A member of the RNA family "tRNA" from Carlito syrichta, 66 nucleotides long. The match comes from Rfam's covariance-model search (46 bits). Pairs were carried over by alignment from the consensus structure, which is taken from published work. The organism belongs to Carlito, within Eukaryota.

RNA sequence: GGUAAAAUGACUGAUAAAGCAUUAGGCUGUAAAUCUAAAGAUAGGGGUGGAGUCCCCUUUUUACCA
Numbered sequence: 001g002g003u004a005a006a007a008u009g010a011c012u013g014a015u016a017a018a019g020c021a022u023u024a025g026g027c028u029g030u031a032a033a034u035c036u037a038a039a040g041a042u043a044g045g046g047g048u049g050g051a052g053u054c055c056c057c058u059u060u061u062u063a064c065c066a
Stems, first nucleotide, its partner, number of pairs: 001065007011019002022038005043058005